[Rfam]
A member of the RNA family "SAM-I/IV (S-adenosyl methionine) riboswitch aptamer", 126 nucleotides long.
RNA sequence: AAUCAUCAUCAGGAGUGGUUUCAUGAUUGAAACCCGCCAACCGAGCCUAGAUAAAUCAAGGUCGCGGUGGUUAGAGCCUUAAACGCUAGAUGUGCCCAGGAAAAUGGGAAACAUGAUUAGCCGCCU
Numbered sequence: 001a002a003u004c005a006u007c008a009u010c011a012g013g014a015g016u017g018g019u020u021u022c023a024u025g026a027u028u029g030a031a032a033c034c035c036g037c038c039a040a041c042c043g044a045g046c047c048u049a050g051a052u053a054a055a056u057c058a059a060g061g062u063c064g065c066g067g068u069g070g071u072u073a074g075a076g077c078c079u080u081a082a083a084c085g086c087u088a089g090a091u092g093u094g095c096c097c098a099g100g101a102a103a104a105u106g107g108g109a110a111a112c113a114u115g116a117u118u119a120g121c122c123g124c125c126u
Base pairs, nucleotide, nucleotide: 007092008091009090010089015035017034018033019032020031021030022029023028036071037070038069041067042066043065045062046061047060048059095108096107097106098105